[Rfam]
RNA sequence: GCCGAGCGCAGCGGCCUUCGGGAUACCUGCGACGAGGAUCAGCCGGCCAGUGCCUCGAUUGCUAGAAAACCCCGGCAGCC
Numbered sequence: 001g002c003c004g005a006g007c008g009c010a011g012c013g014g015c016c017u018u019c020g021g022g023a024u025a026c027c028u029g030c031g032a033c034g035a036g037g038a039u040c041a042g043c044c045g046g047c048c049a050g051u052g053c054c055u056c057g058a059u060u061g062c063u064a065g066a067a068a069a070c071c072c073c074g075g076c077a078g079c080c
Stems, first nucleotide, its partner, number of pairs: 002014003007031005015022002033057005042076005